[Rfam]
Record summary:
Shown here is a 273-nucleotide RNA sequence from Nannospalax galili, a member of the family "Mason-Pfizer monkey virus packaging signal". A search with the family's covariance model found it, with a score of 164 bits. The family has 9 seed sequences and 2,921 matches in Rfam 15.1. Lineage of the source: Eukaryota > Craniata > Theria > Boreoeutheria > Nannospalax. The family's consensus secondary structure was predicted with PFOLD. A reference for the family is Mustafa et al. (2004), "Mutational analysis of the predicted secondary RNA structure of the Mason-Pfizer monkey virus packaging signal", Virus Res.

RNA sequence: UGGUGCCCAACGUGGGGCCCUGGAUACUGGGGACAGCGUGAGGGACAUGAUGGAGGAAAAAGGGGUGCGCACCCCCUCAAAUAAUUCAGAGACGCUGCGGGAGCCUGCCGUGACCGAGCCGAAGGUAAGUUGGUUGUUCAAUCAUGGGGCAAGAAUUAAGCCAGCAUCAGAUUUAUGUGAUACAGUUAAGAGAAGCUCUAUAGGCAAGAAGAGUAAAGAUUAAAACUGAGGAUUUAUUUCAUUUCUUUGAUUUUGUAAAGGACAUUUGUCCCU
Dot-bracket structure: .....(((...(((..........)))..)))....(((.......))).................................(.(((.....((.(((((.......)))))..))....)).).)......((..((((....))))))......((.((.................................))..)).......((((((...(((((.........))))).......)))))).........(.((((....)))).)
About the family: This family represents a group of sequences that are related to the Mason-Pfizer monkey virus (MPMV) packaging signal.